[Rfam]
Shown here is a 104-nucleotide RNA, a member of the family "NiCo (Nickel/Cobalt) riboswitch aptamer". Rfam's curators put it in the seed alignment. For this family Rfam cites "Bacterial riboswitches cooperatively bind Ni(2+) or Co(2+) ions and control expression of heavy metal transporters" (Furukawa et al., Mol Cell, 2015).
RNA sequence: UAUGCAUUAACAGAGCAGGCGAUGCAUCUGAAAUUUAUGUUUCAGAUAUGUGGGGCUGGGCCGGGCUAUCUGCCGGCAGCAGGUAUAUAACCUGUGGGACUGAU
Number, nucleotide and partner (000 for none) at each position: 001u000002a000003u000004g000005c000006a000007u000008u000009a000010a000011c102012a101013g100014a000015g000016c098017a000018g057019g056020c055021g000022a051023u050024g049025c000026a047027u046028c045029u044030g043031a042032a041033a000034u000035u000036u000037a000038u000039g000040u000041u032042u031043c030044a029045g028046a027047u026048a000049u024050g023051u022052g000053g000054g000055g020056c019057u018058g000059g000060g077061c076062c075063g074064g073065g000066c000067u000068a000069u000070c000071u000072g000073c064074c063075g062076g061077c060078a000079g095080c094081a093082g092083g091084u090085a000086u000087a000088u000089a000090a084091c083092c082093u081094g080095u079096g000097g000098g016099a000100c013101u012102g011103a000104u000